[Rfam]
RNA sequence: GUCCUUCAUUUACCGAAGUUGGAUCGUGAAGGGUCCGGUUCAUUUGAUCCAACUCGGGGGAACCAAUUCGGCCCUUGUGGCCUUGGGGUGAAGCUUGGGAAACCAAGCCGGGCUCUCCUGCUCGAAUCCGACAGCUGACCUCGAAGGUGCAAAAGGAGAACAC
Number, nucleotide and partner (000 for none) at each position: 001g000002u000003c000004c000005u000006u000007c000008a000009u000010u000011u149012a148013c147014c146015g000016a000017a000018g053019u052020u051021g050022g049023a048024u047025c046026g045027u000028g000029a000030a000031g000032g000033g000034u000035c000036c000037g000038g000039u000040u000041c000042a000043u000044u000045u026046g025047a024048u023049c022050c021051a020052a019053c018054u144055c143056g142057g141058g140059g139060g000061a000062a000063c000064c085065a084066a000067u000068u000069c000070g000071g000072c000073c000074c000075u000076u000077g000078u000079g000080g000081c000082c000083u000084u065085g064086g129087g128088g127089u000090g000091a000092a000093g000094c107095u106096u105097g104098g000099g000100a000101a000102a000103c000104c097105a096106a095107g094108c000109c000110g123111g122112g121113c120114u000115c000116u000117c000118c000119u000120g113121c112122u111123c110124g000125a000126a000127u088128c087129c086130g000131a000132c000133a000134g000135c000136u000137g000138a000139c059140c058141u057142c056143g055144a054145a000146g014147g013148u012149g011150c000151a000152a000153a000154a000155g000156g000157a000158g000159a000160a000161c000162a000163c000
c-di-AMP riboswitch aptamer (ydaO/yuaA leader): a 163-nucleotide RNA from Schaalia turicensis. Rfam 15.1 lists 7,607 matches to the family in 2,262 species. NCBI's taxonomy places the organism under Bacteria, Actinomycetales, Actinomycetaceae, Schaalia, Schaalia turicensis. It scores 69 bits against the family's covariance model.